[Rfam]
RNA: bZIP non canonical Hac1/Xbp1 intron
RNA sequence: GAUCGCCGUGCCUUUGAAUCAGCAGCAUUCAUUAAUGAGCCUCAGCAGUGGGAACAGGCCCGAUC
Numbered sequence: 001g002a003u004c005g006c007c008g009u010g011c012c013u014u015u016g017a018a019u020c021a022g023c024a025g026c027a028u029u030c031a032u033u034a035a036u037g038a039g040c041c042u043c044a045g046c047a048g049u050g051g052g053a054a055c056a057g058g059c060c061c062g063a064u065c
Base pairs, nucleotide, nucleotide: 001065002064003063004062005061008060010059011058012057015031016030017029018028019027040052041051042050